RNA: mir-497 microRNA precursor family
RNA sequence: CCAGCAGCACACUGUGGUUUGUACGGCACUGUGGCCACGUCCAAACCACACUGUGGUGUUAGAGCGAGG
Numbered sequence: 001c002c003a004g005c006a007g008c009a010c011a012c013u014g015u016g017g018u019u020u021g022u023a024c025g026g027c028a029c030u031g032u033g034g035c036c037a038c039g040u041c042c043a044a045a046c047c048a049c050a051c052u053g054u055g056g057u058g059u060u061a062g063a064g065c066g067a068g069g
Stems, first nucleotide, its partner, number of pairs: 001069002003060004008055004013050009023040003026035002